[Rfam]
RNA sequence: GAUCACGAUGAAGACUCCAUAAUAUUCAAGCUCAACAGACCGGAAUGCAGGCUCCUCCUUCAACUGGAGGAGCAUGCGUGUCGAUUACCCCGCUGAACUGAGUGAUC
Numbered sequence: 001g002a003u004c005a006c007g008a009u010g011a012a013g014a015c016u017c018c019a020u021a022a023u024a025u026u027c028a029a030g031c032u033c034a035a036c037a038g039a040c041c042g043g044a045a046u047g048c049a050g051g052c053u054c055c056u057c058c059u060u061c062a063a064c065u066g067g068a069g070g071a072g073c074a075u076g077c078g079u080g081u082c083g084a085u086u087a088c089c090c091c092g093c094u095g096a097a098c099u100g101a102g103u104g105a106u107c
Base pairs, nucleotide, nucleotide: 001107002106003105004104005103006102

Record summary:
The record is a 107-nucleotide sequence from Ipomoea nil, which matches "Small nucleolar RNA Z107/R87" in Rfam. Rfam 15.1 lists 783 matches to the family in 221 species. The family's RNA type in Rfam is C/D-box small nucleolar RNA. The literature on the family includes a 2001 paper in J Mol Biol by Barneche et al., "Identification of 66 box C/D snoRNAs in Arabidopsis thaliana: extensive gene duplications generated multiple isoforms predicting new ribosomal RNA 2'-O-methylation sites".